[Rfam]
RNA sequence: UCCCUACAAUGCGCGCAUACUUUAGGUUGAUUCUUAUGUGUUAAUGAAUUUCAGACUUAAGUAUGAUGUUGUGUUUGCAUAUAGUUCGGGCAACCGAACGGGAGUAACCUCUUGUUACUCUUCUUACUUCCUGUAUAUUAUUUUAAACCUUUUGGUUAAACGUCACAUUUUCACGAAUGUGGCGUUUUUUUUC
Numbered sequence: 001u002c003c004c005u006a007c008a009a010u011g012c013g014c015g016c017a018u019a020c021u022u023u024a025g026g027u028u029g030a031u032u033c034u035u036a037u038g039u040g041u042u043a044a045u046g047a048a049u050u051u052c053a054g055a056c057u058u059a060a061g062u063a064u065g066a067u068g069u070u071g072u073g074u075u076u077g078c079a080u081a082u083a084g085u086u087c088g089g090g091c092a093a094c095c096g097a098a099c100g101g102g103a104g105u106a107a108c109c110u111c112u113u114g115u116u117a118c119u120c121u122u123c124u125u126a127c128u129u130c131c132u133g134u135a136u137a138u139u140a141u142u143u144u145a146a147a148c149c150u151u152u153u154g155g156u157u158a159a160a161c162g163u164c165a166c167a168u169u170u171u172c173a174c175g176a177a178u179g180u181g182g183c184g185u186u187u188u189u190u191u192u193c
Stems, first nucleotide, its partner, number of pairs: 009057001012054001019050001021048003026045006033038001082101001084099006103119006137156003159186010
Shown here is a 193-nucleotide RNA sequence from Parahaemophilus pittmaniae, a member of the family "GcvB RNA". A reference for the family is Righetti et al. (2016), "Temperature-responsive in vitro RNA structurome of Yersinia pseudotuberculosis", Proc Natl Acad Sci U S A. NCBI's taxonomy places the organism under Bacteria, Gammaproteobacteria, Pasteurellales, Pasteurellaceae, Parahaemophilus. By type it is a non-coding RNA gene. The gcvB gene encodes a small untranslated RNA involved in expression of the dipeptide and oligopeptide transport systems in Escherichia coli. Included several unknown homologues in alignment (Bateman A pers obs).